[Rfam]
RNA sequence: GACAGAGUAGAGAAAUUGCGUUAAGUGUUAAUGGAUGGAAUGUUGCCAUUAAACGAAGAAAUCAAUCUUUCGCGAUAAUUUCUCGCAUUCGCUGCA
Numbered sequence: 001g002a003c004a005g006a007g008u009a010g011a012g013a014a015a016u017u018g019c020g021u022u023a024a025g026u027g028u029u030a031a032u033g034g035a036u037g038g039a040a041u042g043u044u045g046c047c048a049u050u051a052a053a054c055g056a057a058g059a060a061a062u063c064a065a066u067c068u069u070u071c072g073c074g075a076u077a078a079u080u081u082c083u084c085g086c087a088u089u090c091g092c093u094g095c096a
Stems, first nucleotide, its partner, number of pairs: 003094003010084009019074003025054002028052007038090005058071004